The record is a 202-nucleotide sequence from Paenibacillus lentus, which matches "Lysine riboswitch aptamer" in Rfam. The literature on the family includes a 2003 paper in Cell by Mandal et al., "Riboswitches Control Fundamental Biochemical Pathways in Bacillus subtilis and Other Bacteria". The match comes from Rfam's covariance-model search (110 bits). From the family's description: Riboswitches are metabolite binding domains within certain messenger RNAs that serve as precision sensors for their corresponding targets. Allosteric rearrangement of mRNA structure is mediated by ligand binding, and this results in modulation of gene expression. This family includes riboswitches that sense lysine in a number of genes involved in lysine metabolism, including lysC.
RNA sequence: GGAUGAGGUAGAGGUCGCGAUGUUGAUAAGUACAUCUGAGGAGGCGCAGGAGCCGCCAAUGAAUCAGCUGGAAAGGCAGCAUCGCCGAAGUGUGAACGUCAAGCCUCCAUAGACGGACAUGCUGGGGCUGUUUCCGAAAGGGACAGAACUGUCACGGUCUACUUCCUAACUGGAAGGCAGGCCGUGUUGAGCUAUCUUUUUU
Numbered sequence: 001g002g003a004u005g006a007g008g009u010a011g012a013g014g015u016c017g018c019g020a021u022g023u024u025g026a027u028a029a030g031u032a033c034a035u036c037u038g039a040g041g042a043g044g045c046g047c048a049g050g051a052g053c054c055g056c057c058a059a060u061g062a063a064u065c066a067g068c069u070g071g072a073a074a075g076g077c078a079g080c081a082u083c084g085c086c087g088a089a090g091u092g093u094g095a096a097c098g099u100c101a102a103g104c105c106u107c108c109a110u111a112g113a114c115g116g117a118c119a120u121g122c123u124g125g126g127g128c129u130g131u132u133u134c135c136g137a138a139a140g141g142g143a144c145a146g147a148a149c150u151g152u153c154a155c156g157g158u159c160u161a162c163u164u165c166c167u168a169a170c171u172g173g174a175a176g177g178c179a180g181g182c183c184g185u186g187u188u189g190a191g192c193u194a195u196c197u198u199u200u201u202u
Stems, first nucleotide, its partner, number of pairs: 006197006017085009033070002036067004089123006097115004124150002128146007153186008